[Rfam]
RNA sequence: GAGAGGCGGGUGAAGAUCCCGUCCGCCGGAUGACCAAGGGUUCCAGGGCCACGUUCAUCGUCCCUGGGUGAGUCGGGUCCUAAGGCGAGGCCGACAGGCGUAGUCGAAUGGAUGAACGGGUUGAUAUUCCCGUACCGGCUUGCGACCGAACAGACCGAGGCCGUGAGUACUAACCUCCGGCCGGUCCCCAUCCGUCCUUCGGGACGGUGGCGGGUCCGGUCGCCGGGACCGUAACGGUAGUAGGUGAGCGCAGGAGUGACACGGAAGGGCAGCCGGCCCGGGAGGUGGUUUUCCCGGGCCAAGCACGCGGCCCGUCCCCCAGGCAAAUCCGGGGGGCGUAUGGGUGAGGUGCGAUGGGACGCGCGUUGAGCGUGGAUCCGGUGGUCCCGGCCGUCGAGAAAAGCUUCGGCGUGAGGGCGCAUGCCGCCCGUACCCCAAACCGACACUGGUGGUCAGGUAGAGAAUACCAAGGCGAU
Numbered sequence: 001g002a003g004a005g006g007c008g009g010g011u012g013a014a015g016a017u018c019c020c021g022u023c024c025g026c027c028g029g030a031u032g033a034c035c036a037a038g039g040g041u042u043c044c045a046g047g048g049c050c051a052c053g054u055u056c057a058u059c060g061u062c063c064c065u066g067g068g069u070g071a072g073u074c075g076g077g078u079c080c081u082a083a084g085g086c087g088a089g090g091c092c093g094a095c096a097g098g099c100g101u102a103g104u105c106g107a108a109u110g111g112a113u114g115a116a117c118g119g120g121u122u123g124a125u126a127u128u129c130c131c132g133u134a135c136c137g138g139c140u141u142g143c144g145a146c147c148g149a150a151c152a153g154a155c156c157g158a159g160g161c162c163g164u165g166a167g168u169a170c171u172a173a174c175c176u177c178c179g180g181c182c183g184g185u186c187c188c189c190a191u192c193c194g195u196c197c198u199u200c201g202g203g204a205c206g207g208u209g210g211c212g213g214g215u216c217c218g219g220u221c222g223c224c225g226g227g228a229c230c231g232u233a234a235c236g237g238u239a240g241u242a243g244g245u246g247a248g249c250g251c252a253g254g255a256g257u258g259a260c261a262c263g264g265a266a267g268g269g270c271a272g273c274c275g276g277c278c279c280g281g282g283a284g285g286u287g288g289u290u291u292u293c294c295c296g297g298g299c300c301a302a303g304c305a306c307g308c309g310g311c312c313c314g315u316c317c318c319c320c321a322g323g324c325a326a327a328u329c330c331g332g333g334g335g336g337c338g339u340a341u342g343g344g345u346g347a348g349g350u351g352c353g354a355u356g357g358g359a360c361g362c363g364c365g366u367u368g369a370g371c372g373u374g375g376a377u378c379c380g381g382u383g384g385u386c387c388c389g390g391c392c393g394u395c396g397a398g399a400a401a402a403g404c405u406u407c408g409g410c411g412u413g414a415g416g417g418c419g420c421a422u423g424c425c426g427c428c429c430g431u432a433c434c435c436c437a438a439a440c441c442g443a444c445a446c447u448g449g450u451g452g453u454c455a456g457g458u459a460g461a462g463a464a465u466a467c468c469a470a471g472g473c474g475a476u
Stems, first nucleotide, its partner, number of pairs: 005023006024474004032454004038434002043067006052060002074430004079111002084105003088101001090099003116133005136426004141421004146416001248412002253407005261394004267388003272382005277298006299357002303352004310345003314337007322330002360374005440449002456468004